[Rfam]
RNA sequence: GGCGUCACUGGGGGGAGCCGAUGGUCGGCUGAGAGGUCCUGUCACACCGGGACGACCCCUGGAACCUGAUCCGGUUCACACCGGCGUAGGGAUCAGUGAGCCACCAUGAG
Numbered sequence: 001g002g003c004g005u006c007a008c009u010g011g012g013g014g015g016a017g018c019c020g021a022u023g024g025u026c027g028g029c030u031g032a033g034a035g036g037u038c039c040u041g042u043c044a045c046a047c048c049g050g051g052a053c054g055a056c057c058c059c060u061g062g063a064a065c066c067u068g069a070u071c072c073g074g075u076u077c078a079c080a081c082c083g084g085c086g087u088a089g090g091g092a093u094c095a096g097u098g099a100g101c102c103a104c105c106a107u108g109a110g
Base pairs, nucleotide, nucleotide: 006098007097008096009095010094011059012058013057014056017029018028019027020026021025036053037052038051039050040049065090066089067088068087071084072083073082074081
RNA: TPP riboswitch aptamer (THI element)
Organism: Azospirillum griseum